[Rfam]
RNA sequence: UCCCGGAUACCGCUGGACGAGGCAGAGGCGGGGGACCCAGAGUUCCCGGGCAUUUUCUGCAUCAUGCACCCUUGGGGUGAAGCCGACACGUGAGAUUCCGUGCGGCCGGAUGUCCUCAUCCGAACCCGACAGCUAACUCCGCAGGCGUUGAGAGGCACU
Numbered sequence: 001u002c003c004c005g006g007a008u009a010c011c012g013c014u015g016g017a018c019g020a021g022g023c024a025g026a027g028g029c030g031g032g033g034g035a036c037c038c039a040g041a042g043u044u045c046c047c048g049g050g051c052a053u054u055u056u057c058u059g060c061a062u063c064a065u066g067c068a069c070c071c072u073u074g075g076g077g078u079g080a081a082g083c084c085g086a087c088a089c090g091u092g093a094g095a096u097u098c099c100g101u102g103c104g105g106c107c108g109g110a111u112g113u114c115c116u117c118a119u120c121c122g123a124a125c126c127c128g129a130c131a132g133c134u135a136a137c138u139c140c141g142c143a144g145g146c147g148u149u150g151a152g153a154g155g156c157a158c159u
Stems, first nucleotide, its partner, number of pairs: 001026002028142006038074002075127003083105003108121004
The record is a 159-nucleotide sequence from Arthrobacter sp. Leaf69, which matches "c-di-AMP riboswitch aptamer (ydaO/yuaA leader)" in Rfam.
Rfam's curators write: This family represents a conserved RNA structure found upstream of the ydaO and yuaA genes in Bacillus subtilis and related genes in other bacteria.